[Rfam]
RNA: ZMP/ZTP riboswitch aptamer (pfl RNA motif)
RNA sequence: GUGAGACGUCGCGACUGGCGCUGACGUGCUCUCGGGCGCGUCGCUAGGUGGGGCACCACCGGGGAGCGAAAACGCGGAGGCCGUGCGCCUGGGUCGCCGCC
Number, nucleotide and partner (000 for none) at each position: 001g000002u000003g075004a000005g073006a000007c000008g000009u069010c068011g067012c066013g000014a000015c063016u062017g089018g088019c087020g086021c085022u000023g000024a000025c000026g000027u000028g000029c000030u000031c000032u000033c000034g000035g000036g000037c000038g000039c000040g000041u000042c000043g000044c000045u000046a000047g000048g059049u058050g057051g056052g000053g000054c000055a000056c051057c050058a049059c048060c000061g000062g016063g015064g000065a000066g012067c011068g010069a009070a000071a000072a000073c005074g000075c003076g000077g000078a000079g095080g094081c093082c092083g000084u000085g021086c020087g019088c018089c017090u000091g000092g082093g081094u080095c079096g000097c000098c000099g000100c000101c000